[Rfam]
RNA sequence: CCAAAGGCUCUUUUAAGAGCCACGUAAGUUUUCAACAAAAUGAGUU
Numbered sequence: 001c002c003a004a005a006g007g008c009u010c011u012u013u014u015a016a017g018a019g020c021c022a023c024g025u026a027a028g029u030u031u032u033c034a035a036c037a038a039a040a041u042g043a044g045u046u
Base pairs, nucleotide, nucleotide: 006021007020008019009018010017011016
Rfam assigns this 46-nucleotide RNA sequence from Otolemur garnettii to the family "Histone 3' UTR stem-loop". A search with the family's covariance model found it, with a score of 36 bits. Rfam's curators write: The mRNAs of metazoan histone genes lack a poly-A tail. 3' end processing occurs at a site between a highly conserved stem-loop (modelled by this family) and a purine rich region around 20 nts downstream (the histone downstream element, or HDE). The stem-loop is bound by a 31 kDa stem-loop binding protein (SLBP - also termed the histone hairpin binding protein, or HBP). Together with U7 snRNA binding of the HDE, SLBP binding nucleate s the formation of the processing complex.